Record summary: Shown here is a 135-nucleotide RNA from Levilactobacillus bambusae, a member of the family "Enterococcus sRNA 68 (Lacto-3 RNA)". The literature on the family includes a 2015 paper in RNA by Innocenti et al., "Whole-genome mapping of 5' RNA ends in bacteria by tagged sequencing: a comprehensive view in Enterococcus faecalis". Taxonomically the source falls in Levilactobacillus (Bacteria, Bacillati, Bacilli, Lactobacillaceae).
RNA sequence: UGCGAUGAGUCGAGAUUUCGCGCAUUCUUGGUAACAGGAAUGUCCAGUCCUACUGGCUAGGCGAAUUUUGAUAGACGGGGCACAAGGUUUCACCACCGGAUGUGGCGUGCCCGAUGAAUGGGGAAUGUGGAUUCC
Numbered sequence: 001u002g003c004g005a006u007g008a009g010u011c012g013a014g015a016u017u018u019c020g021c022g023c024a025u026u027c028u029u030g031g032u033a034a035c036a037g038g039a040a041u042g043u044c045c046a047g048u049c050c051u052a053c054u055g056g057c058u059a060g061g062c063g064a065a066u067u068u069u070g071a072u073a074g075a076c077g078g079g080g081c082a083c084a085a086g087g088u089u090u091c092a093c094c095a096c097c098g099g100a101u102g103u104g105g106c107g108u109g110c111c112c113g114a115u116g117a118a119u120g121g122g123g124a125a126u127g128u129g130g131a132u133u134c135c
Base pairs, nucleotide, nucleotide: 017065018064019063020062021061022043023042024041025040026039027038028037029036030035044056045055046054047053079111080110081109082108083107093105094104095103096102122135123134124133125132126131